The family of this 103-nucleotide sequence from Microbacterium azadirachtae is "Glycine riboswitch aptamer". Lineage of the source: Bacteria > Actinomycetota > Micrococcales > Microbacteriaceae > Microbacterium.
RNA sequence: CCGCUCUGAAAAGCGAUCUCGAGCGAAGCAAGAGAUCCGCCGACGGUGAAAGCCCUUCGCGCACGCGCGCGGGCGAAGCUCUCAGGCUCAUGACAGAGGGGGA
Number, nucleotide and partner (000 for none) at each position: 001c101002c100003g000004c098005u097006c096007u095008g094009a000010a000011a000012a000013g000014c000015g037016a036017u035018c034019u033020c032021g000022a000023g000024c000025g000026a000027a000028g000029c000030a000031a000032g020033a019034g018035a017036u016037c015038c000039g087040c086041c085042g083043a082044c000045g000046g081047u000048g079049a000050a000051a000052g074053c073054c072055c071056u000057u000058c000059g000060c000061g000062c000063a000064c000065g000066c000067g000068c000069g000070c000071g055072g054073g053074c052075g000076a000077a000078g000079c048080u000081c046082u043083c042084a000085g041086g040087c039088u000089c000090a000091u000092g000093a000094c008095a007096g006097a005098g004099g000100g002101g001102g000103a000